[Rfam]
RNA sequence: UGUUGUCAGCAGGGGUUUCUUUCGGCCUUCAGCUGUUGUAGACUGUAGGCCGGCGGAAACUACUUGCUGACGACG
Numbered sequence: 001u002g003u004u005g006u007c008a009g010c011a012g013g014g015g016u017u018u019c020u021u022u023c024g025g026c027c028u029u030c031a032g033c034u035g036u037u038g039u040a041g042a043c044u045g046u047a048g049g050c051c052g053g054c055g056g057a058a059a060c061u062a063c064u065u066g067c068u069g070a071c072g073a074c075g
Stems, first nucleotide, its partner, number of pairs: 005071004010066004014061007022053007030045003
Shown here is a 75-nucleotide sequence from Vanessa tameamea, a member of the family "mir-2796 microRNA precursor family". NCBI's taxonomy places the organism under Eukaryota, Protostomia, Dicondylia, Neoptera, Vanessa.